[Rfam]
The record is a 143-nucleotide RNA from Butyrivibrio sp. CB08, which matches "Clostridiales-1 RNA" in Rfam. It scores 71 bits against the family's covariance model. The family's consensus secondary structure is taken from published work.
RNA sequence: UGAUAAUAAGUGGAUCAAAGUCCAUGAGGCUCAUGGACACAUGAAUGACUCAUGGACCUUGAGACACAAACACGCAUGAGGAAGUAGCACGUAGUGCGAAUUCCGAAUGCGUGCAUGGAUUGCGUACGCAAUCCAUGUUAUUA
Numbered sequence: 001u002g003a004u005a006a007u008a009a010g011u012g013g014a015u016c017a018a019a020g021u022c023c024a025u026g027a028g029g030c031u032c033a034u035g036g037a038c039a040c041a042u043g044a045a046u047g048a049c050u051c052a053u054g055g056a057c058c059u060u061g062a063g064a065c066a067c068a069a070a071c072a073c074g075c076a077u078g079a080g081g082a083a084g085u086a087g088c089a090c091g092u093a094g095u096g097c098g099a100a101u102u103c104c105g106a107a108u109g110c111g112u113g114c115a116u117g118g119a120u121u122g123c124g125u126a127c128g129c130a131a132u133c134c135a136u137g138u139u140a141u142u143a
Stems, first nucleotide, its partner, number of pairs: 001143007011066002016061003020057009030047001031044005071113007080104004087097004117134007